[Rfam]
Rfam assigns this 53-nucleotide sequence from Limnohabitans radicicola to the family "nhaA-I RNA". It scores 57 bits against the family's covariance model. The family's consensus secondary structure is taken from published work.

RNA sequence: GGGUGCAGAGCCAUGGUUGGCGCUGCAGGUUUUGCGAUGGUCGGGCCGCCUCG
Numbered sequence: 001g002g003g004u005g006c007a008g009a010g011c012c013a014u015g016g017u018u019g020g021c022g023c024u025g026c027a028g029g030u031u032u033u034g035c036g037a038u039g040g041u042c043g044g045g046c047c048g049c050c051u052c053g
Stems, first nucleotide, its partner, number of pairs: 005026004010021003035053003039050003